[Rfam]
RNA: UnaL2 LINE 3' element
Organism: Sinocyclocheilus anshuiensis
RNA sequence: AUAUUUAAUUUCUGUAAGUCACUUUGGAUAAAAGUGUCUGCUAAAUGACUAAAU
Number, nucleotide and partner (000 for none) at each position: 001a000002u000003a000004u000005u000006u000007a000008a000009u000010u000011u000012c000013u043014g041015u040016a039017a000018g000019u000020c036021a035022c034023u033024u032025u031026g000027g000028a000029u000030a000031a025032a024033a023034g022035u021036g020037u000038c000039u016040g015041c014042u000043a013044a000045a000046u000047g000048a000049c000050u000051a000052a000053a000054u000